[Rfam]
RNA sequence: UUAAUAAAUAGAGGUGCACUGAAGAAGAGUAUAUGGUAAGUGAUAAGAAGGAAAGUCUUCGAUAUUACCAUAAAAAGGCUGACGUGCCGAAACAGUCAAAUUACUUUCAGCUUGACUGUUGGGGGUCUGGUGAAUAACUAGGCAACUGUCAUGAAAGAAUUUCAUGGAGUGCUAUUUGUUUA
Numbered sequence: 001u002u003a004a005u006a007a008a009u010a011g012a013g014g015u016g017c018a019c020u021g022a023a024g025a026a027g028a029g030u031a032u033a034u035g036g037u038a039a040g041u042g043a044u045a046a047g048a049a050g051g052a053a054a055g056u057c058u059u060c061g062a063u064a065u066u067a068c069c070a071u072a073a074a075a076a077g078g079c080u081g082a083c084g085u086g087c088c089g090a091a092a093c094a095g096u097c098a099a100a101u102u103a104c105u106u107u108c109a110g111c112u113u114g115a116c117u118g119u120u121g122g123g124g125g126u127c128u129g130g131u132g133a134a135u136a137a138c139u140a141g142g143c144a145a146c147u148g149u150c151a152u153g154a155a156a157g158a159a160u161u162u163c164a165u166g167g168a169g170u171g172c173u174a175u176u177u178g179u180u181u182a
Stems, first nucleotide, its partner, number of pairs: 006177006016087004023080002032072008091120009101110002121147002125143007149167007